RNA sequence: UUAAAUAUGCCCACGUCACUCUCCUCUAGGAUCUUUACCCUUUCCUAGAAACUGUCGUGGGCAUUAAUAA
Numbered sequence: 001u002u003a004a005a006u007a008u009g010c011c012c013a014c015g016u017c018a019c020u021c022u023c024c025u026c027u028a029g030g031a032u033c034u035u036u037a038c039c040c041u042u043u044c045c046u047a048g049a050a051a052c053u054g055u056c057g058u059g060g061g062c063a064u065u066a067a068u069a070a
Base pairs, nucleotide, nucleotide: 007064008063009062010061011060012059013058014057015056017054018053027047028046029045030044031043
Shown here is a 70-nucleotide RNA, a member of the family "potC RNA".
Pairs were carried over by alignment from the consensus structure, which is taken from published work.